[Rfam]
RNA sequence: AAAACGCACUAUUGUAAGUCGCUUUGGAUAAAAGCGUCUGCUUAAUUCAAGAUU
Numbered sequence: 001a002a003a004a005c006g007c008a009c010u011a012u013u014g015u016a017a018g019u020c021g022c023u024u025u026g027g028a029u030a031a032a033a034g035c036g037u038c039u040g041c042u043u044a045a046u047u048c049a050a051g052a053u054u
Stems, first nucleotide, its partner, number of pairs: 014041003020036006

This 54-nucleotide RNA from Muraenolepis orangiensis belongs to the Rfam family "UnaL2 LINE 3' element". The match comes from Rfam's covariance-model search (55 bits). Gene Ontology term of the family: transposition, RNA-mediated. NCBI's taxonomy places the organism under Eukaryota, Euteleostomi, Teleostei, Paracanthopterygii, Muraenolepis. Pairs were carried over by alignment from the consensus structure, which is taken from published work.